[Rfam]
RNA sequence: CUAACGAUACUCCCGCGUUGAACGCCCUCAAAGCAUUGCGCGGCGCACCCAUCAGCAUGGGCCGGGGUGAGAUUCCCGUGG
Numbered sequence: 001c002u003a004a005c006g007a008u009a010c011u012c013c014c015g016c017g018u019u020g021a022a023c024g025c026c027c028u029c030a031a032a033g034c035a036u037u038g039c040g041c042g043g044c045g046c047a048c049c050c051a052u053c054a055g056c057a058u059g060g061g062c063c064g065g066g067g068u069g070a071g072a073u074u075c076c077c078g079u080g081g
Stems, first nucleotide, its partner, number of pairs: 012078001013043006044064002048060002065077003
Background: pemK RNA: an 81-nucleotide sequence from Ruminococcaceae bacterium AF10-16. The match comes from Rfam's covariance-model search (42 bits). Lineage of the source: Bacteria > Bacillati > Clostridia > Eubacteriales > Oscillospiraceae. Rfam classes the family as a cis-regulatory element.